[Rfam]
RNA sequence: UCGUCCUGCUCGUGAUCGUCUUCUCAGCCUUCACGUGCGGACGGAUGAACGGAAGAACCCCCACGAGGACGUGACUCGCGGGGGUUCUUC
Numbered sequence: 001u002c003g004u005c006c007u008g009c010u011c012g013u014g015a016u017c018g019u020c021u022u023c024u025c026a027g028c029c030u031u032c033a034c035g036u037g038c039g040g041a042c043g044g045a046u047g048a049a050c051g052g053a054a055g056a057a058c059c060c061c062c063a064c065g066a067g068g069a070c071g072u073g074a075c076u077c078g079c080g081g082g083g084g085u086u087c088u089u090c
Base pairs, nucleotide, nucleotide: 001044002043003042006040007039008038009037011035012034013033014032015031018028019027052090053089054088055087056086057085058084059083060082061081062080064078065077066076067075